[Rfam]
RNA: Glycine riboswitch aptamer
RNA sequence: CUCUGGAGAGCGUUCCAUAAUUAGGGAACCACCAAAGGGGAAAGCCUUUAUUCGAUUCGAAUAGGGUAAACUUUCAGGUGCAAGGACAGAG
Number, nucleotide and partner (000 for none) at each position: 001c091002u090003c089004u088005g087006g000007a000008g000009a000010g000011c000012g029013u028014u027015c026016c000017a000018u000019a000020a000021u000022u000023a000024g000025g000026g015027a014028a013029c012030c000031a079032c078033c077034a000035a074036a000037g000038g073039g072040g071041a000042a000043a000044g000045c065046c064047u063048u000049u000050a000051u000052u000053c000054g000055a000056u000057u000058c000059g000060a000061a000062u000063a047064g046065g045066g000067u000068a000069a000070a000071c040072u039073u038074u035075c000076a000077g033078g032079u031080g000081c000082a000083a000084g000085g000086a000087c005088a004089g003090a002091g001